[Rfam]
RNA sequence: UUUGAGGGGAAUGUUGUUUGGCUCGAGGCCACCAACUUCAUCUAAUGUGAGCAACUCUUGUUAGUGUCAUCGGACCAGGCUUCAUUCCCCUCAAA
Numbered sequence: 001u002u003u004g005a006g007g008g009g010a011a012u013g014u015u016g017u018u019u020g021g022c023u024c025g026a027g028g029c030c031a032c033c034a035a036c037u038u039c040a041u042c043u044a045a046u047g048u049g050a051g052c053a054a055c056u057c058u059u060g061u062u063a064g065u066g067u068c069a070u071c072g073g074a075c076c077a078g079g080c081u082u083c084a085u086u087c088c089c090c091u092c093a094a095a
Stems, first nucleotide, its partner, number of pairs: 001095013016080006024072003
RNA: mir-166 microRNA precursor family
Organism: Solanum commersonii